Overview:
A member of the RNA family "bantam microRNA precursor family" from Pseudolycoriella hygida, 82 nucleotides long. The base pairs follow the family's consensus structure, which was predicted with RNAalifold. Rfam links the family to the GO terms miRNA-mediated post-transcriptional gene silencing and RISC complex. Rfam 15.1 lists 182 matches to the family in 182 species.

RNA sequence: UCUGCUGAACGAAACCGGUUUUCGAUUUGAUUUUGCUGAAUUUUUACAAAAGUGAGAUCAUUUUGAAAGCUGGUUUUGUGCU
Numbered sequence: 001u002c003u004g005c006u007g008a009a010c011g012a013a014a015c016c017g018g019u020u021u022u023c024g025a026u027u028u029g030a031u032u033u034u035g036c037u038g039a040a041u042u043u044u045u046a047c048a049a050a051a052g053u054g055a056g057a058u059c060a061u062u063u064u065g066a067a068a069g070c071u072g073g074u075u076u077u078g079u080g081c082u
Base pairs, nucleotide, nucleotide: 009079010078011077012076013075014074016072017071018070019069020068021067022066023065024064025063028060029059030058031057032056033055